[Rfam]
RNA sequence: UCUGAGCCCUCGACCCCGAUUCCCAGCCGCUCGAGCCCUGACGCACUUCCCCGGUGUCAGGUCGGAGCGGAUGGGGAUCAGGAUCGAGGGACCCGGCCCC
Numbered sequence: 001u002c003u004g005a006g007c008c009c010u011c012g013a014c015c016c017c018g019a020u021u022c023c024c025a026g027c028c029g030c031u032c033g034a035g036c037c038c039u040g041a042c043g044c045a046c047u048u049c050c051c052c053g054g055u056g057u058c059a060g061g062u063c064g065g066a067g068c069g070g071a072u073g074g075g076g077a078u079c080a081g082g083a084u085c086g087a088g089g090g091a092c093c094c095g096g097c098c099c100c
Stems, first nucleotide, its partner, number of pairs: 010087004015082002018079002021076005027070006035063001037061008
The record is a 100-nucleotide sequence from Microbacterium sp. RG1, which matches "mraW RNA" in Rfam. A search with the family's covariance model found it, with a score of 64 bits. Rfam 15.1 lists 851 matches to the family in 821 species. The base pairs follow the family's consensus structure, which is taken from published work.